[Rfam]
RNA sequence: CCCCUGUGAUGAAUUGCCAUGCUAAUACUGAGACAUCAGGUAGGGGUUUUACCCUGCAUUGGAUGUUGUUGAUAUAAAUUCUUUCUUACAUGCAUCUGAGGGGC
Numbered sequence: 001c002c003c004c005u006g007u008g009a010u011g012a013a014u015u016g017c018c019a020u021g022c023u024a025a026u027a028c029u030g031a032g033a034c035a036u037c038a039g040g041u042a043g044g045g046g047u048u049u050u051a052c053c054c055u056g057c058a059u060u061g062g063a064u065g066u067u068g069u070u071g072a073u074a075u076a077a078a079u080u081c082u083u084u085c086u087u088a089c090a091u092g093c094a095u096c097u098g099a100g101g102g103g104c
Stems, first nucleotide, its partner, number of pairs: 001103004041056005
About this RNA
The family of this 104-nucleotide sequence from Sorex araneus is "Small nucleolar RNA U6-53/MBII-28". It is one of the family's seed sequences. Pairs were carried over by alignment from the consensus structure. Lineage of the source: Eukaryota > Teleostomi > Tetrapoda > Soricidae > Sorex. The family's RNA type in Rfam is C/D-box small nucleolar RNA. Its family is annotated with nucleolus and RNA processing in the Gene Ontology. On this family, see Huttenhofer et al., EMBO J 2001: "RNomics: an experimental approach that identifies 201 candidates for novel, small, non-messenger RNAs in mouse".